[Rfam]
RNA sequence: ACCACUGGGGAGCUGCGGGACCAGAUUCCUGGUGCCACCACUGAGAACUCCAAGAUUGUCCUGCACGUCGACAAU
Numbered sequence: 001a002c003c004a005c006u007g008g009g010g011a012g013c014u015g016c017g018g019g020a021c022c023a024g025a026u027u028c029c030u031g032g033u034g035c036c037a038c039c040a041c042u043g044a045g046a047a048c049u050c051c052a053a054g055a056u057u058g059u060c061c062u063g064c065a066c067g068u069c070g071a072c073a074a075u
Stems, first nucleotide, its partner, number of pairs: 010069002014065008023056001027055002030052003034048001
Rfam assigns this 75-nucleotide sequence from Phyllostomus discolor to the family "mir-492 microRNA precursor family". It scores 77 bits against the family's covariance model. Lineage of the source: Eukaryota > Vertebrata > Teleostomi > Euteleostomi > Phyllostomus. Rfam 15.1 lists 149 matches to the family in 48 species. Its family is annotated with miRNA-mediated post-transcriptional gene silencing and RISC complex in the Gene Ontology.